[Rfam]
Nucleotides: 100
Base pairs, nucleotide, nucleotide: 004094005093006092007091008090010086011085012084013083014082015078017077018076019075020074021073022072023068025066026065027064028063034059035058036057037056042051043050044049
Number, partner (000 for none) and nucleotide at each position: 001000g002000g003000g004094c005093g006092g007091g008090c009000u010086c011085u012084g013083u014082g015078c016000g017077g018076c019075g020074g021073a022072g023068c024000g025066c026065c027064g028063c029000g030000a031000a032000c033000c034059a035058u036057g037056u038000c039000a040000g041000g042051c043050g044049g045000g046000g047000a048000a049044c050043c051042g052000a053000g054000c055000a056037g057036c058035a059034u060000u061000a062000a063028g064027c065026g066025g067000a068023g069000u070000u071000g072022c073021u074020c075019c076018g077017u078015g079000c080000g081000a082014c083013g084012c085011a086010g087000c088000c089000g090008g091007u092006c093005u094004g095000u096000u097000c098000g099000u100000c